[Rfam]
Rfam assigns this 117-nucleotide RNA from Ramlibacter lithotrophicus to the family "ALIL pseudoknot". On this family, see Mazauric et al., J Biol Chem 2008: "Apical loop-internal loop RNA pseudoknots: a new type of stimulator of -1 translational frameshifting in bacteria". A search with the family's covariance model found it, with a score of 113 bits. NCBI's taxonomy places the organism under Bacteria, Pseudomonadati, Pseudomonadota, Comamonadaceae, Ramlibacter.
RNA sequence: CGCGUAUUUCGCCCAGGCGGAGCUCGACCGCCGCUUGAAGUCGUGAUGCCGCUUGUUGACGAGCAUCGUGCUCGUUUCGGGGUCGAGCCGAUCUGCAAGGCGUUGCAGAUUGCCCCU
Number, nucleotide and partner (000 for none) at each position: 001c000002g000003c000004g000005u000006a000007u000008u000009u000010c000011g000012c000013c000014c000015a000016g032017g031018c030019g029020g028021a000022g000023c000024u000025c000026g000027a000028c020029c019030g018031c017032c016033g000034c000035u000036u000037g000038a000039a000040g000041u000042c000043g000044u000045g000046a000047u000048g000049c000050c000051g000052c000053u000054u000055g000056u000057u000058g000059a000060c000061g000062a000063g000064c000065a000066u000067c000068g000069u000070g000071c000072u000073c000074g000075u000076u000077u000078c000079g116080g115081g114082g113083u000084c000085g000086a000087g000088c000089c112090g111091a000092u109093c108094u107095g106096c105097a104098a103099g000100g000101c000102g000103u098104u097105g096106c095107a094108g093109a092110u000111u090112g089113c082114c081115c080116c079117u000